Shown here is a 157-nucleotide RNA from Sapajus apella, a member of the family "U1 spliceosomal RNA". The family has 100 seed sequences and 40,184 matches in Rfam 15.1.
RNA sequence: UUUUUUACCUGGCAGUGGAGAUACCAUAAUCACAAAGGUGGUUUUCUAGGGCAAGGCUCAUCCAUUGCACUCUGGAUAUGCUGACCCAUAUGAUUUCCCCAAAUGUAGGAAAUUCAGUUGCAUAAUUUUCGAGGGACUAUGUUUGCACUCUCUUCAG
Numbered sequence: 001u002u003u004u005u006u007a008c009c010u011g012g013c014a015g016u017g018g019a020g021a022u023a024c025c026a027u028a029a030u031c032a033c034a035a036a037g038g039u040g041g042u043u044u045u046c047u048a049g050g051g052c053a054a055g056g057c058u059c060a061u062c063c064a065u066u067g068c069a070c071u072c073u074g075g076a077u078a079u080g081c082u083g084a085c086c087c088a089u090a091u092g093a094u095u096u097c098c099c100c101a102a103a104u105g106u107a108g109g110a111a112a113u114u115c116a117g118u119u120g121c122a123u124a125a126u127u128u129u130c131g132a133g134g135g136a137c138u139a140u141g142u143u144u145g146c147a148c149u150c151u152c153u154u155c156a157g
Base pairs, nucleotide, nucleotide: 012121013120014119015118016048017047018046019045020044021043023042024041025040026039027038050087051086055082056081057080060077061076062075063074091116092115093114094112095111096110098108131155132154133153134152136151140147141146